A member of the RNA family "Small nucleolar RNA Z266" from Momordica charantia, 98 nucleotides long. Pairs were carried over by alignment from the consensus structure, which was predicted with PFOLD. By type it is a C/D-box small nucleolar RNA. The source organism's lineage runs through Eukaryota, Embryophyta, Euphyllophyta, Cucurbitaceae and Momordica.

[Rfam]
Nucleotides: 098
Stems, first nucleotide, its partner, number of pairs: 001098002004095007
Number, partner (000 for none) and nucleotide at each position: 001098u002097u003000g004095u005094g006093g007092c008091a009090a010089g011000u012000a013000u014000g015000a016000u017000g018000a019000a020000u021000c022000a023000a024000u025000u026000a027000g028000a029000u030000g031000u032000g033000u034000g035000a036000a037000a038000g039000g040000a041000u042000u043000a044000g045000u046000c047000c048000u049000u050000c051000c052000u053000g054000a055000a056000c057000u058000u059000a060000a061000c062000c063000u064000u065000u066000u067000g068000a069000g070000g071000c072000a073000u074000u075000u076000u077000u078000c079000a080000a081000u082000u083000g084000u085000c086000u087000g088000a089010c090009u091008u092007g093006c094005c095004g096000g097002a098001g